Overview:
Small nucleolar RNA SNORD16: a 101-nucleotide RNA sequence from Holothuria leucospilota. Taxonomically the source falls in Holothuria (Eukaryota, Eumetazoa, Echinozoa, Holothuroidea).

[Rfam]
RNA sequence: GGCAAUGAUGUGUGUAAUUUGCGUCUGAUCGGGGUGUUUGGGAUGGUUUGCCUACCGUUAUUAAACCAACCCCUGGCACUGACGACACUUACCUCUGAGCU
Numbered sequence: 001g002g003c004a005a006u007g008a009u010g011u012g013u014g015u016a017a018u019u020u021g022c023g024u025c026u027g028a029u030c031g032g033g034g035u036g037u038u039u040g041g042g043a044u045g046g047u048u049u050g051c052c053u054a055c056c057g058u059u060a061u062u063a064a065a066c067c068a069a070c071c072c073c074u075g076g077c078a079c080u081g082a083c084g085a086c087a088c089u090u091a092c093c094u095c096u097g098a099g100c101u
Stems, first nucleotide, its partner, number of pairs: 001101003022084004031074004040066001042059005
The base pairs follow the family's consensus structure, which was predicted with PFOLD. On this family, see Fragapane et al., EMBO J 1993: "A novel small nucleolar RNA (U16) is encoded inside a ribosomal protein intron and originates by processing of the pre-mRNA".